[Rfam]
RNA sequence: AAAAAAGAGGUUCUUAGCUGACCCUCUAUAAAAAACUAAGGAGAG
Numbered sequence: 001a002a003a004a005a006a007g008a009g010g011u012u013c014u015u016a017g018c019u020g021a022c023c024c025u026c027u028a029u030a031a032a033a034a035a036c037u038a039a040g041g042a043g044a045g
Stems, first nucleotide, its partner, number of pairs: 006027005015038002

Record summary: PreQ1 (pre queuosine) riboswitch aptamer: a 45-nucleotide sequence from Ureibacillus endophyticus. The base pairs follow the family's consensus structure. About the family: This family is a bacterial riboswitch that binds to the metabolite preQ1, an intermediate in the biosynthesis of the modified nucleoside queuosine from GTP. One example of this riboswitch is located in the leader of the Bacillus subtilis ykvJKLM (queCDEF) operon which encodes four genes necessary for queuosine production. PreQ1 binding to the riboswitch aptamer is thought to induce premature transcription termination within the leader to down-regulate expression of these genes. The source organism's lineage runs through Bacteria, Bacillota, Caryophanales, Caryophanaceae and Ureibacillus.